About this RNA: This 80-nucleotide RNA sequence from Plasmodium falciparum belongs to the Rfam family "small nucleolar RNA snoR17". On this family, see Chakrabarti et al., RNA 2007: "Structural RNAs of known and unknown function identified in malaria parasites by comparative genomics and RNA analysis". Gene Ontology terms of the family: nucleolus and RNA processing. Rfam's curators put it in the seed alignment. It is annotated as a C/D-box small nucleolar RNA. The source organism's lineage runs through Eukaryota, Sar, Haemosporida, Laverania and Plasmodium falciparum.
RNA sequence: UUUUUUAUGAUGGAAAAUAAAAAAGAAAGCUUGAUCAAAGUUGAUGAUUUUUAUGCUAUUUCACCAAAAUCUCGGAAGAA
Number, nucleotide and partner (000 for none) at each position: 001u000002u080003u079004u078005u077006u000007a000008u000009g000010a000011u000012g000013g000014a000015a000016a000017a000018u000019a000020a000021a000022a000023a000024a000025g000026a000027a000028a000029g000030c000031u000032u000033g000034a000035u000036c000037a000038a000039a000040g000041u000042u000043g000044a000045u000046g000047a000048u000049u000050u000051u000052u000053a000054u000055g000056c000057u000058a000059u000060u000061u000062c000063a000064c000065c000066a000067a000068a000069a000070u000071c000072u000073c000074g000075g000076a000077a005078g004079a003080a002